[Rfam]
RNA sequence: GUCGGGAGGGCGGCUAAUACAAUACCCACGUUCGUGGGAAAUACGCCCGCCGAUUCGCACUAGACGGUUUCUAACCUCCCGACUCCCCCGC
Numbered sequence: 001g002u003c004g005g006g007a008g009g010g011c012g013g014c015u016a017a018u019a020c021a022a023u024a025c026c027c028a029c030g031u032u033c034g035u036g037g038g039a040a041a042u043a044c045g046c047c048c049g050c051c052g053a054u055u056c057g058c059a060c061u062a063g064a065c066g067g068u069u070u071c072u073a074a075c076c077u078c079c080c081g082a083c084u085c086c087c088c089c090g091c
Stems, first nucleotide, its partner, number of pairs: 001083009012047003015043002025038005049068004

Shown here is a 91-nucleotide RNA sequence from Stenotrophomonas sp. BIIR7, a member of the family "sRNA-Xcc1". A search with the family's covariance model found it, with a score of 58 bits. The family has 74 seed sequences and 421 matches in Rfam 15.1. On this family, see Chen et al., RNA Biol 2011: "sRNA-Xcc1, an integron-encoded transposon- and plasmid-transferred trans-acting sRNA, is under the positive control of the key virulence regulators HrpG and HrpX of Xanthomonas campestris pathovar campestris".